Shown here is a 254-nucleotide RNA from Alphacoronavirus neovisontis, a member of the family "Alphacoronavirus 3'UTR". Pairs were carried over by alignment from the consensus structure. Clan: Coronavirus 3' UTR. From the family's description: The 3' UTR of alphacoronaviruses consists of two small hairpins (PK-SL2) which can form an alternate conformation (PK-SL1) where the loop region of the second hairpin interacts with the stem of the first hairpin. PK-SL2 has been confirmed in HCoV-229E and HCoV-NL63 by in vitro structure probing experiments. The literature on the family includes a 2014 paper in Virus Res by Madhugiri et al., "RNA structure analysis of alphacoronavirus terminal genome regions". Rfam classes the family as a cis-regulatory element. NCBI's taxonomy places the organism under Viruses, Riboviria, Cornidovirineae, Minacovirus, Mink coronavirus 1.
[Rfam]
RNA sequence: AUUAUAACAAGAUCUUCAGGCGUGUACUGCGAGAUCUACUCUUACACAGAAUGGUAAGCACGUAUCUAUGCAGGGUGUAAGUAACUCAUAGAUAUAUUAGGAAGUUUAGAUUGAAUUAAUCAAUACUAGAUUGAAAAUUUGAGAGUAAUUUAAAGAUCCGCUUAGACGAGCCAACAAUGGAAGGGCUCAACUUUUGGAUCUAGUUAAUUGCUAAUUUUAAAUUGAUGAUAAUUUUCCUUUUGAUAGUGAUACAC
Number, nucleotide and partner (000 for none) at each position: 001a000002u000003u000004a000005u000006a000007a000008c000009a000010a000011g000012a000013u000014c000015u000016u000017c000018a000019g000020g000021c000022g000023u000024g000025u000026a000027c000028u000029g000030c000031g000032a000033g000034a000035u000036c000037u000038a000039c000040u000041c058042u057043u056044a055045c054046a000047c000048a000049g000050a000051a000052u000053g000054g045055u044056a043057a042058g041059c000060a000061c000062g095063u094064a093065u092066c091067u090068a089069u088070g087071c000072a086073g085074g000075g000076u000077g000078u000079a000080a000081g000082u000083a000084a000085c073086u072087c070088a069089u068090a067091g066092a065093u064094a063095u062096a000097u000098u000099a238100g237101g236102a235103a234104g233105u000106u000107u000108a000109g223110a222111u221112u000113g000114a000115a000116u000117u214118a000119a000120u000121c000122a000123a000124u000125a204126c203127u202128a201129g000130a000131u000132u197133g000134a195135a194136a193137a000138u000139u000140u190141g000142a187143g186144a000145g000146u000147a000148a000149u000150u000151u000152a000153a000154a000155g000156a000157u000158c000159c000160g000161c170162u169163u000164a000165g000166a000167c000168g000169a162170g161171c180172c179173a000174a000175c000176a000177a000178u000179g172180g171181a000182a000183g000184g000185g000186c143187u142188c000189a000190a140191c000192u000193u136194u135195u134196g000197g132198a000199u000200c000201u128202a127203g126204u125205u000206a000207a000208u000209u000210g000211c000212u000213a000214a117215u000216u000217u000218u000219a000220a000221a111222u110223u109224g000225a000226u000227g000228a000229u000230a000231a000232u000233u104234u103235u102236c101237c100238u099239u000240u000241u000242g000243a000244u000245a000246g000247u000248g000249a000250u000251a000252c000253a000254c000